[Rfam]
RNA sequence: GAUCAAUGAUGAAAAUAGCUGAAUCUGAGCAUCAGAAGAACUUCCAGUCUGCCUGAUGCAUGAUCUUCAUACUUCUGAGA
Dot-bracket structure: ............................(((((...(((........)))....))))).....................
The record is an 80-nucleotide RNA from Puma concolor, which matches "Small nucleolar RNA U2-19" in Rfam. The literature on the family includes a 2004 paper in Curr Biol by Tycowski et al., "Guide RNAs with 5' Caps and Novel Box C/D snoRNA-like Domains for Modification of snRNAs in Metazoa". The base pairs follow the family's consensus structure, which is taken from published work. Its family is annotated with nucleolus and RNA processing in the Gene Ontology. Taxonomically the source falls in Puma (Eukaryota, Gnathostomata, Euteleostomi, Felinae).